[Rfam]
RNA sequence: AGGUCAUGCCUAUAACACCUUUAUCAGGGUAGGCACUCGGUCACGCUGUGGGUCAAGCGACCUUAGACAUGAUUGUCGAGGGUGUGAUGUGAGGAAGGGUUAAAUGCCCU
Dot-bracket structure: [[[[..(((((((...]]]]........)))))))((((((((((((..(((((....)))))..((((....))))...)))))))).))))..(((((.....)))))
The family of this 110-nucleotide RNA sequence from Paenibacillus sp. Leaf72 is "epsC RNA". The base pairs follow the family's consensus structure, which is taken from published work.